[Rfam]
RNA: Group II catalytic intron D1-D4-2
RNA sequence: GGAGGAAGGCCCUCCGGUCAGGGCCUGCAGGGGCACUGACCAAACGGCCCGAUGCUGCGCCUUUCCAACGAAAGGGGUGGUGAGCGAUUCGGGAAAAGGCGGAGGACACUACCGUCACG
Numbered sequence: 001g002g003a004g005g006a007a008g009g010c011c012c013u014c015c016g017g018u019c020a021g022g023g024c025c026u027g028c029a030g031g032g033g034c035a036c037u038g039a040c041c042a043a044a045c046g047g048c049c050c051g052a053u054g055c056u057g058c059g060c061c062u063u064u065c066c067a068a069c070g071a072a073a074g075g076g077g078u079g080g081u082g083a084g085c086g087a088u089u090c091g092g093g094a095a096a097a098g099g100c101g102g103a104g105g106a107c108a109c110u111a112c113c114g115u116c117a118c119g
Stems, first nucleotide, its partner, number of pairs: 001015005016041006023034004045119002048093005053087001054081002057078002061074004098116005